[Rfam]
RNA sequence: CAGUACACUCAUCCAUAAAGUAGGAAACACUACACUGGACGCUGCGGUUUAGUAGUGCUUUCUACUUUAUGGAGGAGUCCACUGU
Numbered sequence: 001c002a003g004u005a006c007a008c009u010c011a012u013c014c015a016u017a018a019a020g021u022a023g024g025a026a027a028c029a030c031u032a033c034a035c036u037g038g039a040c041g042c043u044g045c046g047g048u049u050u051a052g053u054a055g056u057g058c059u060u061u062c063u064a065c066u067u068u069a070u071g072g073a074g075g076a077g078u079c080c081a082c083u084g085u
Stems, first nucleotide, its partner, number of pairs: 014071010026059001028057006
Dot-bracket structure: .............((((((((((..(.((((((..................)))))).)..))))))))))..............
Shown here is an 85-nucleotide RNA sequence from Pelodiscus sinensis, a member of the family "mir-142 microRNA precursor family". The family's consensus secondary structure was predicted with RNAalifold. The match comes from Rfam's covariance-model search (70 bits). The literature on the family includes a 2008 paper in Nat Biotechnol by Friedlander et al., "Discovering microRNAs from deep sequencing data using miRDeep". Taxonomically the source falls in Pelodiscus (Eukaryota, Metazoa, Deuterostomia, Vertebrata).